[Rfam]
RNA sequence: ACUCGUGUGAGCGAGUAUAAACAGGCUUUAGGCUCACAGCGUCACGGGGAUAAACCCCGGGGGUAGCA
Numbered sequence: 001a002c003u004c005g006u007g008u009g010a011g012c013g014a015g016u017a018u019a020a021a022c023a024g025g026c027u028u029u030a031g032g033c034u035c036a037c038a039g040c041g042u043c044a045c046g047g048g049g050a051u052a053a054a055c056c057c058c059g060g061g062g063g064u065a066g067c068a
Base pairs, nucleotide, nucleotide: 001016002015003014004013006038007037008036009035010034011033025067026066027065032040042062043061045059046058047057048056049055
RNA: Pistol ribozyme
Organism: Bacillus phage SWEP1